[Rfam]
RNA sequence: CUGUGGCCCGGUUCAAGUAAUCCAGGAUAGGCUGUAUCCAUUCUAGCUGGCCUAUUCUUGGUUACUUGCACUGGGAGGCAA
Numbered sequence: 001c002u003g004u005g006g007c008c009c010g011g012u013u014c015a016a017g018u019a020a021u022c023c024a025g026g027a028u029a030g031g032c033u034g035u036a037u038c039c040a041u042u043c044u045a046g047c048u049g050g051c052c053u054a055u056u057c058u059u060g061g062u063u064a065c066u067u068g069c070a071c072u073g074g075g076a077g078g079c080a081a
Stems, first nucleotide, its partner, number of pairs: 002080003007075006014068009024058010
The record is an 81-nucleotide sequence from Rostratula benghalensis, which matches "mir-26 microRNA precursor family" in Rfam. A search with the family's covariance model found it, with a score of 87 bits. On this family, see Lagos-Quintana et al., Science 2001: "Identification of novel genes coding for small expressed RNAs". Its family is annotated with miRNA-mediated post-transcriptional gene silencing and RISC complex in the Gene Ontology.